[Rfam]
RNA sequence: CUCCAGCUGCUGCUGCUGCAGCAGCAGCAAGGUGCUGCUGCUGCUGUAGCACUGCUCGCAGCAGCAGCAAGGUGCUGCUGCUGCUGCUGAGCUACCAGCAGCAGCAGCAGCCUGCUGCUGCUGCUGCUGCUCCUGCUGCUGCUACUGUUGAGCUCCCAGCAGCAGCAGCUUCUUGCUGCUGCUGCUGCUGCUGCUGUUGAGCUCCCAGCAGCUGCUGCUGCUGCUGCUCAGCAGCAGCAGCAGCUGCUGAGCUGCCUGCUGCUGCUGCUACAGUAAUCGCAGCAGCAGCAGGCUGCC
Numbered sequence: 001c002u003c004c005a006g007c008u009g010c011u012g013c014u015g016c017u018g019c020a021g022c023a024g025c026a027g028c029a030a031g032g033u034g035c036u037g038c039u040g041c042u043g044c045u046g047u048a049g050c051a052c053u054g055c056u057c058g059c060a061g062c063a064g065c066a067g068c069a070a071g072g073u074g075c076u077g078c079u080g081c082u083g084c085u086g087c088u089g090a091g092c093u094a095c096c097a098g099c100a101g102c103a104g105c106a107g108c109a110g111c112c113u114g115c116u117g118c119u120g121c122u123g124c125u126g127c128u129g130c131u132c133c134u135g136c137u138g139c140u141g142c143u144a145c146u147g148u149u150g151a152g153c154u155c156c157c158a159g160c161a162g163c164a165g166c167a168g169c170u171u172c173u174u175g176c177u178g179c180u181g182c183u184g185c186u187g188c189u190g191c192u193g194c195u196g197u198u199g200a201g202c203u204c205c206c207a208g209c210a211g212c213u214g215c216u217g218c219u220g221c222u223g224c225u226g227c228u229c230a231g232c233a234g235c236a237g238c239a240g241c242a243g244c245u246g247c248u249g250a251g252c253u254g255c256c257u258g259c260u261g262c263u264g265c266u267g268c269u270a271c272a273g274u275a276a277u278c279g280c281a282g283c284a285g286c287a288g289c290a291g292g293c294u295g296c297c
Base pairs, nucleotide, nucleotide: 001251002250003249005248006247007246009244010243021035022034023033037238038237039236043099046095047094050089051088052086054084055083058081059080060079061078064075065074101142102141103140104139105138107136108135109134110132114130115129117127118126120124146233147232148231149230150229151228152227153226156223158222159221162218163217164216165215166214168212169211170210172208176199178197179196181191182190184188254293255292256291257290258289259288260287261286262285263284264283265282266281267280268279270277
RNA: TrkB IRES
Organism: Ananas comosus